[Rfam]
Shown here is a 55-nucleotide RNA from Actinomadura kijaniata, a member of the family "L17-Actino-Proteobacteria ribosomal protein leader". By type it is a cis-regulatory leader.
RNA sequence: CGCGUUCCCGUCCCGGGUCCGCGACUGACGUCGGUACCUGACACGGCCGGCGCAG
Numbered sequence: 001c002g003c004g005u006u007c008c009c010g011u012c013c014c015g016g017g018u019c020c021g022c023g024a025c026u027g028a029c030g031u032c033g034g035u036a037c038c039u040g041a042c043a044c045g046g047c048c049g050g051c052g053c054a055g
Base pairs, nucleotide, nucleotide: 001023002022003021004020006017007016008015025055026054027053029052030051031050032049033048034047035046